[Rfam]
RNA: mir-254 microRNA precursor family
Organism: Caenorhabditis briggsae
RNA sequence: UACAGAAGCAUCGAUUUUCACACGCCAUGAUGCGCCUGUGCAAAUCUUUUGCAACUGUAUA
Numbered sequence: 001u002a003c004a005g006a007a008g009c010a011u012c013g014a015u016u017u018u019c020a021c022a023c024g025c026c027a028u029g030a031u032g033c034g035c036c037u038g039u040g041c042a043a044a045u046c047u048u049u050u051g052c053a054a055c056u057g058u059a060u061a
Stems, first nucleotide, its partner, number of pairs: 001059005008052002010049001013046005019040004024035002026032001